The family of this 98-nucleotide RNA sequence from Bagarius yarrelli is "Small nucleolar RNA SNORD16". Taxonomically the source falls in Bagarius (Eukaryota, Opisthokonta, Actinopteri, Sisoridae). It scores 78 bits against the family's covariance model. By type it is a C/D-box small nucleolar RNA. For this family Rfam cites "A novel small nucleolar RNA (U16) is encoded inside a ribosomal protein intron and originates by processing of the pre-mRNA" (Fragapane et al., EMBO J, 1993).

RNA sequence: UGCUGUGAUGGUGUAAUUUGCGUCUUACUCUGCACAUGGCGACAAUUGCCUGAUGUCACAUGCUUGUGCUGAAGGGUGACGAAAAGUAAAUCUGAGCU
Numbered sequence: 001u002g003c004u005g006u007g008a009u010g011g012u013g014u015a016a017u018u019u020g021c022g023u024c025u026u027a028c029u030c031u032g033c034a035c036a037u038g039g040c041g042a043c044a045a046u047u048g049c050c051u052g053a054u055g056u057c058a059c060a061u062g063c064u065u066g067u068g069c070u071g072a073a074g075g076g077u078g079a080c081g082a083a084a085a086g087u088a089a090a091u092c093u094g095a096g097c098u
Stems, first nucleotide, its partner, number of pairs: 002097002021081004030071001032069003039063002041057004